Hepatitis C virus stem-loop I: a 47-nucleotide RNA sequence.
The sequence is in the family's curated seed alignment.
The literature on the family includes a 2016 paper in Mol Cell by Pirakitikulr et al., "The Coding Region of the HCV Genome Contains a Network of Regulatory RNA Structures".
RNA sequence: CACUAGGGUGGCAGGAGCCCUCAGAAAACUUGGGGCCCCCCCUUUGA
Dot-bracket structure: .....(((.((.......((((((.....))))))..))))).....
Numbered sequence: 001c002a003c004u005a006g007g008g009u010g011g012c013a014g015g016a017g018c019c020c021u022c023a024g025a026a027a028a029c030u031u032g033g034g035g036c037c038c039c040c041c042c043u044u045u046g047a
Stems, first nucleotide, its partner, number of pairs: 006042003010039002019035006
Gene Ontology term of the family: viral RNA genome replication.